RNA sequence: GGGGGCGAUUGGUCUCGACUGCGGUCGUUUGACCAGGGGAAGCGAGCCGAGGAAGGCAACGAUGAUCUCGUUAACCAUCCGUUGCAAAAAACACAAGCGCCGAUUCCAAUCAGCGCGACUUCGCUCUCGCUGCCUGACGGCAGCUAGGCGAGUCUGUCAGCCCGGGUUCGUCAUCGGCCCGGAUCCUGGCAUCAGCUAGAUGACUCACCGCACGCAUCGGUCGCGGUUGCGUGUGGGACACCAAACAGCGACUGGGCCCGUCAUCCCGACUCGUUCGUGAGAUCGGGAGGGCCGAGCAGAGGCGAAGCGAACUGCGCUCGGAGAAGCCUGGUGAUGCGUCGCAGGACGCGGGUUCGAUUCCCGCCGCCUCCACCC
Numbered sequence: 001g002g003g004g005g006c007g008a009u010u011g012g013u014c015u016c017g018a019c020u021g022c023g024g025u026c027g028u029u030u031g032a033c034c035a036g037g038g039g040a041a042g043c044g045a046g047c048c049g050a051g052g053a054a055g056g057c058a059a060c061g062a063u064g065a066u067c068u069c070g071u072u073a074a075c076c077a078u079c080c081g082u083u084g085c086a087a088a089a090a091a092c093a094c095a096a097g098c099g100c101c102g103a104u105u106c107c108a109a110u111c112a113g114c115g116c117g118a119c120u121u122c123g124c125u126c127u128c129g130c131u132g133c134c135u136g137a138c139g140g141c142a143g144c145u146a147g148g149c150g151a152g153u154c155u156g157u158c159a160g161c162c163c164g165g166g167u168u169c170g171u172c173a174u175c176g177g178c179c180c181g182g183a184u185c186c187u188g189g190c191a192u193c194a195g196c197u198a199g200a201u202g203a204c205u206c207a208c209c210g211c212a213c214g215c216a217u218c219g220g221u222c223g224c225g226g227u228u229g230c231g232u233g234u235g236g237g238a239c240a241c242c243a244a245a246c247a248g249c250g251a252c253u254g255g256g257c258c259c260g261u262c263a264u265c266c267c268g269a270c271u272c273g274u275u276c277g278u279g280a281g282a283u284c285g286g287g288a289g290g291g292c293c294g295a296g297c298a299g300a301g302g303c304g305a306a307g308c309g310a311a312c313u314g315c316g317c318u319c320g321g322a323g324a325a326g327c328c329u330g331g332u333g334a335u336g337c338g339u340c341g342c343a344g345g346a347c348g349c350g351g352g353u354u355c356g357a358u359u360c361c362c363g364c365c366g367c368c369u370c371c372a373c374c375c
Stems, first nucleotide, its partner, number of pairs: 001371007019344007030334001032332004038328002043320005048070005056085006125148003129144005155191006162182007170204006208236009219253006255293005261287002270281002273312004278305001348364005
RNA: transfer-messenger RNA
Organism: Modestobacter sp. VKM Ac-2676